[Rfam]
RNA sequence: GGUCCACCUCUAAGGGCCACAGCAGAAACCUUCACGUCGUGGCUCCUUCAGAUUCUAAUGAAUCUGUGAAUUCUGCU
Numbered sequence: 001g002g003u004c005c006a007c008c009u010c011u012a013a014g015g016g017c018c019a020c021a022g023c024a025g026a027a028a029c030c031u032u033c034a035c036g037u038c039g040u041g042g043c044u045c046c047u048u049c050a051g052a053u054u055c056u057a058a059u060g061a062a063u064c065u066g067u068g069a070a071u072u073c074u075g076c077u
Stems, first nucleotide, its partner, number of pairs: 014045005021077007028040002049066007

Background: The family of this 77-nucleotide RNA sequence from Microcaecilia unicolor is "Mammalian CPEB3 ribozyme". It scores 61 bits against the family's covariance model. The source organism's lineage runs through Eukaryota, Vertebrata, Gymnophiona, Siphonopidae and Microcaecilia. Rfam links the family to the GO term RNA nuclease activity. The base pairs follow the family's consensus structure, which is taken from published work.